[Rfam]
Annotation
The record is an 81-nucleotide RNA, which matches "RT-18 RNA" in Rfam.

RNA sequence: CACCACAUGGUGGAAAUUUUCGCAACAGGACGCAGCCUAGUAGACCUCUAUGGUUCGGACGGCAGCGAAGCGAAAAAGGAG
Numbered sequence: 001c002a003c004c005a006c007a008u009g010g011u012g013g014a015a016a017u018u019u020u021c022g023c024a025a026c027a028g029g030a031c032g033c034a035g036c037c038u039a040g041u042a043g044a045c046c047u048c049u050a051u052g053g054u055u056c057g058g059a060c061g062g063c064a065g066c067g068a069a070g071c072g073a074a075a076a077a078g079g080a081g
Stems, first nucleotide, its partner, number of pairs: 001012004021072003031067003035063003043056002045053002
The family's RNA type in Rfam is small RNA.
The base pairs follow the family's consensus structure, which is taken from published work.
The sequence is in the family's curated seed alignment.